[Rfam]
RNA sequence: ACUAGGGGCUCAAUGCCUUUGCCCUUCUAACUUAAGGCAAGUCAGCUAGCUAGCUAGCUGGCGACACCGACAAAUUGUUCGGGGAACACUUGUUAGAGGAAGGAUACCGCGGCCCGCCGAAAGGUUAAGACGGAGCGAUCUGUCUAGGGUGCAGCAGGUGGCCUAACAGCCACUGGAUGGUAAAAAGUCCUUUUCCUAGAGUCAACCCGCAGCCAAGUCCUAAGGCUUCUUCUAAAGAGGCUAUGGAUGCAGUUCAGAGACUAGAUGUUGGUGGGACGGCCCCUUCUAAUCCCAGAAGAGGUUGUUCUAAGAUAUAGUCCGGCCCGCCCGAGAGGGUACU
Numbered sequence: 001a002c003u004a005g006g007g008g009c010u011c012a013a014u015g016c017c018u019u020u021g022c023c024c025u026u027c028u029a030a031c032u033u034a035a036g037g038c039a040a041g042u043c044a045g046c047u048a049g050c051u052a053g054c055u056a057g058c059u060g061g062c063g064a065c066a067c068c069g070a071c072a073a074a075u076u077g078u079u080c081g082g083g084g085a086a087c088a089c090u091u092g093u094u095a096g097a098g099g100a101a102g103g104a105u106a107c108c109g110c111g112g113c114c115c116g117c118c119g120a121a122a123g124g125u126u127a128a129g130a131c132g133g134a135g136c137g138a139u140c141u142g143u144c145u146a147g148g149g150u151g152c153a154g155c156a157g158g159u160g161g162c163c164u165a166a167c168a169g170c171c172a173c174u175g176g177a178u179g180g181u182a183a184a185a186a187g188u189c190c191u192u193u194u195c196c197u198a199g200a201g202u203c204a205a206c207c208c209g210c211a212g213c214c215a216a217g218u219c220c221u222a223a224g225g226c227u228u229c230u231u232c233u234a235a236a237g238a239g240g241c242u243a244u245g246g247a248u249g250c251a252g253u254u255c256a257g258a259g260a261c262u263a264g265a266u267g268u269u270g271g272u273g274g275g276a277c278g279g280c281c282c283c284u285u286c287u288a289a290u291c292c293c294a295g296a297a298g299a300g301g302u303u304g305u306u307c308u309a310a311g312a313u314a315u316a317g318u319c320c321g322g323c324c325c326g327c328c329c330g331a332g333a334g335g336g337u338a339c340u
Stems, first nucleotide, its partner, number of pairs: 065273005071267002076211002080209004088202004212253002217248004225241005257320001259319005275306007283298004326337004
Description
The record is a 340-nucleotide RNA from filamentous cyanobacterium CCP5, which matches "Group I catalytic intron" in Rfam. Its family is annotated with Group I intron splicing in the Gene Ontology. Lineage of the source: Bacteria > Bacillati > Cyanobacteriota.